[Rfam]
RNA: skipping-rope RNA
Organism: Bacillus smithii
RNA sequence: GAUUUUCUGAGGAUGGAACAGGCAGCCAUCGCCCUUGGUGGAGAUGCGGGAGUGCCACCCCGCCUAAAAUC
Numbered sequence: 001g002a003u004u005u006u007c008u009g010a011g012g013a014u015g016g017a018a019c020a021g022g023c024a025g026c027c028a029u030c031g032c033c034c035u036u037g038g039u040g041g042a043g044a045u046g047c048g049g050g051a052g053u054g055c056c057a058c059c060c061c062g063c064c065u066a067a068a069a070u071c
Stems, first nucleotide, its partner, number of pairs: 001071006009064001012030005021056004032041001046063005